RNA sequence: CAAGUUAAUAUUUUCCGAGCUGUUUAUUUCUAAGGAUGUUUUUCGAACGUCUAUGAAAAUCAGCCAAGGGUAUAAAAAGAAAUUUUUAUGCCUCCCGCGAUUGGAAAGGAAAAAAUGCUGACUUCUAAC
Numbered sequence: 001c002a003a004g005u006u007a008a009u010a011u012u013u014u015c016c017g018a019g020c021u022g023u024u025u026a027u028u029u030c031u032a033a034g035g036a037u038g039u040u041u042u043u044c045g046a047a048c049g050u051c052u053a054u055g056a057a058a059a060u061c062a063g064c065c066a067a068g069g070g071u072a073u074a075a076a077a078a079g080a081a082a083u084u085u086u087u088a089u090g091c092c093u094c095c096c097g098c099g100a101u102u103g104g105a106a107a108g109g110a111a112a113a114a115a116u117g118c119u120g121a122c123u124u125c126u127a128a129c
Base pairs, nucleotide, nucleotide: 003123004122006120011113012112013111014110015109016108019064020063021062022061024059025058028057029056030055034052035051036050037049038048039047040046068093069092070091071090072089073088074087075086076085077084078083094104095103
Shown here is a 129-nucleotide RNA sequence from Tindallia californiensis, a member of the family "Molybdenum/Tungsten riboswitch aptamer (Moco RNA motif)".
Taxonomically the source falls in Tindallia (Bacteria, Bacillota, Clostridia, Tindalliaceae).